[Rfam]
The record is a 72-nucleotide RNA from Pomacea canaliculata, which matches "mir-124 microRNA precursor family" in Rfam.
RNA sequence: ACCUGUUUGUGUUCACUGCGUUGGCCUUGGUGAUUUACACACUAUUAAGGCACGCGGUGAAUGCCAAGGGGA
Number, nucleotide and partner (000 for none) at each position: 001a000002c000003c070004u069005g000006u067007u000008u000009g064010u063011g062012u061013u060014c059015a058016c057017u000018g055019c054020g053021u000022u000023g000024g000025c050026c049027u048028u047029g046030g045031u044032g043033a000034u000035u000036u000037a000038c000039a000040c000041a000042c000043u032044a031045u030046u029047a028048a027049g026050g025051c000052a000053c020054g019055c018056g000057g016058u015059g014060a013061a012062u011063g010064c009065c000066a000067a006068g000069g004070g003071g000072a000
Gene Ontology terms of the family: miRNA-mediated post-transcriptional gene silencing and RISC complex.